RNA: Small nucleolar RNA Z102/R77
Organism: Spinacia oleracea
RNA sequence: GAAUGAAGUGAUGAACAAUUGUUUCCUAUUGGUUUGAUUCACCAGAAUGAUGGUGUUAAAUGUAUUCGUACUGUCUGAUCAUUC
Numbered sequence: 001g002a003a004u005g006a007a008g009u010g011a012u013g014a015a016c017a018a019u020u021g022u023u024u025c026c027u028a029u030u031g032g033u034u035u036g037a038u039u040c041a042c043c044a045g046a047a048u049g050a051u052g053g054u055g056u057u058a059a060a061u062g063u064a065u066u067c068g069u070a071c072u073g074u075c076u077g078a079u080c081a082u083u084c
Stems, first nucleotide, its partner, number of pairs: 002083004036057001040055004